[Rfam]
Nucleotides: 153
Stems, first nucleotide, its partner, number of pairs: 020035006044075005053064004076094004099143001100140004111128007
Number, partner (000 for none) and nucleotide at each position: 001000u002000a003000c004000u005000g006000a007000a008000a009000a010000a011000a012000a013000g014000c015000g016000c017000c018000g019000g020035g021034a022033c023032u024031c025030c026000u027000g028000c029000g030025g031024g032023a033022g034021u035020u036000g037000a038000c039000g040000a041000g042000g043000u044075g045074a046073g047072g048071g049000a050000g051000c052000a053064u054063c055062g056061a057000g058000g059000u060000u061056u062055c063054g064053g065000c066000g067000g068000a069000u070000g071048c072047c073046c074045u075044c076094c077093g078092g079091u080000g081000a082000g083000g084000g085000g086000c087000c088000c089000a090000g091079g092078c093077c094076g095000u096000a097000a098000g099143g100140a101139c102138g103137g104000g105000a106000c107000a108000a109000a110000a111128c112127c113126u114125g115124g116123c117122a118000g119000u120000g121000a122117u123116g124115c125114c126113a127112g128111g129000g130000c131000c132000a133000a134000a135000a136000c137103c138102c139101g140100u141000a142000c143099c144000g145000g146000g147000g148000c149000c150000c151000g152000g153000a

Overview:
Rfam assigns this 153-nucleotide sequence from Carboxydocella thermautotrophica to the family "glmS glucosamine-6-phosphate activated ribozyme aptamer". Pairs were carried over by alignment from the consensus structure, which is taken from published work. The organism belongs to Carboxydocella thermautotrophica, within Bacteria. Rfam classes the family as a riboswitch.